[Rfam]
The record is a 203-nucleotide RNA sequence from Oryza barthii, which matches "MIR812 microRNA precursor family" in Rfam. It scores 81 bits against the family's covariance model. Rfam links the family to the GO terms RISC complex and miRNA-mediated post-transcriptional gene silencing. Rfam 15.1 lists 57,451 matches to the family in 24 species.
RNA sequence: UAUAAGGGAUUUUAAGUUUUUGUUUGCAACGUUUGAUUACUCGUCUUAUUCAAAAUUUUUUGAAAUUAUUAUAUAUUUUAUUUGUGACUUACUUUAUUAUCUACUGUACUUUAAGCACAACAUUUCGUUUUUUAUAUUUGCAAAAAAAAAUUAAAUAAGACGAAUGGUCAAACGUUGCAAACAAAAACUGAAAAUCUCUUAUA
Dot-bracket structure: ........................((((((.((((((((.(((((((((.........................................................................................................))))))))).)))))))).))))))........................